[Rfam]
RNA sequence: ACGCGGAAAGGAGGUGGUCCAAGCAAUGGUGAAUCAUAGUUGGACUAGCGAGGUGGUUGUCCGCUAAGUCGCGGACUGUUGUCUCGUGACGUAUGCGAAUACGAGGCAACCACCGGGGCCCCUGGCAGCCGGAGGGCGGGAUCCUGAUCCCGUCUUUGGUCCAUCCGGCCCACCUGCCCAGCAGGUGGAGUUCGCCUGGGGCCCUUUUCAU
Numbered sequence: 001a002c003g004c005g006g007a008a009a010g011g012a013g014g015u016g017g018u019c020c021a022a023g024c025a026a027u028g029g030u031g032a033a034u035c036a037u038a039g040u041u042g043g044a045c046u047a048g049c050g051a052g053g054u055g056g057u058u059g060u061c062c063g064c065u066a067a068g069u070c071g072c073g074g075a076c077u078g079u080u081g082u083c084u085c086g087u088g089a090c091g092u093a094u095g096c097g098a099a100u101a102c103g104a105g106g107c108a109a110c111c112a113c114c115g116g117g118g119c120c121c122c123u124g125g126c127a128g129c130c131g132g133a134g135g136g137c138g139g140g141a142u143c144c145u146g147a148u149c150c151c152g153u154c155u156u157u158g159g160u161c162c163a164u165c166c167g168g169c170c171c172a173c174c175u176g177c178c179c180a181g182c183a184g185g186u187g188g189a190g191u192u193c194g195c196c197u198g199g200g201g202c203c204c205u206u207u208u209c210a211u
Stems, first nucleotide, its partner, number of pairs: 013061006062097003067092001068090004073084003115205008124196003

The family of this 211-nucleotide RNA from Nonomuraea jabiensis is "Actinobacteria sRNA Ms_IGR-5".
The pairing is the family consensus, mapped onto this sequence.
Lineage of the source: Bacteria > Actinomycetes > Streptosporangiales > Streptosporangiaceae > Nonomuraea.